[Rfam]
RNA sequence: UAUUAGGCUGGUGCAAAAGCAACUGCAGUUUUGCCAUUACUUUUAAUGGCAAAAACUGCAGUUGCUUUUGCACCAGCCUAAUA
Number, nucleotide and partner (000 for none) at each position: 001u083002a082003u081004u080005a079006g078007g077008c076009u075010g074011g073012u072013g071014c070015a069016a068017a067018a066019g065020c064021a063022a062023c061024u060025g059026c058027a057028g056029u055030u053031u052032u051033g050034c049035c048036a047037u046038u045039a044040c000041u000042u000043u000044u039045a038046a037047u036048g035049g034050c033051a032052a031053a030054a000055a029056c028057u027058g026059c025060a024061g023062u022063u021064g020065c019066u018067u017068u016069u015070g014071c013072a012073c011074c010075a009076g008077c007078c006079u005080a004081a003082u002083a001